[Rfam]
The record is a 90-nucleotide RNA from Medicago truncatula, which matches "MIR2617 microRNA precursor family" in Rfam. Its family is annotated with miRNA-mediated post-transcriptional gene silencing and RISC complex in the Gene Ontology. The source organism's lineage runs through Eukaryota, Magnoliopsida, Gunneridae, rosids and Medicago.
RNA sequence: UAGUAGUAUGACAUGCCCGUUUGGGAUAUACUCUGAUGUAUUUUUAUUUAUUAUUUAAUUGCUUUGGGAUAACGGGGUGUUACAAUUGGU
Numbered sequence: 001u002a003g004u005a006g007u008a009u010g011a012c013a014u015g016c017c018c019g020u021u022u023g024g025g026a027u028a029u030a031c032u033c034u035g036a037u038g039u040a041u042u043u044u045u046a047u048u049u050a051u052u053a054u055u056u057a058a059u060u061g062c063u064u065u066g067g068g069a070u071a072a073c074g075g076g077g078u079g080u081u082a083c084a085a086u087u088g089g090u
Base pairs, nucleotide, nucleotide: 002090004088005087006086007085009082010081011080012079013078014077016076017075018074019073020072021071